This 55-nucleotide sequence belongs to the Rfam family "nhaA-I RNA".
[Rfam]
RNA sequence: GGGUGCGACUAAAAUGACUUAGUCGCAGGUUUUGCGAGUGGUCGGGCCGCCAUUC
Numbered sequence: 001g002g003g004u005g006c007g008a009c010u011a012a013a014a015u016g017a018c019u020u021a022g023u024c025g026c027a028g029g030u031u032u033u034g035c036g037a038g039u040g041g042u043c044g045g046g047c048c049g050c051c052a053u054u055c
Stems, first nucleotide, its partner, number of pairs: 005026008036055007
By type it is a riboswitch. Rfam describes the family as follows. Acidobacteria, Alphaproteobacteria, Betaproteobacteria and Gammaproteobacteria, Verrucomicrobia, cand. division NC10.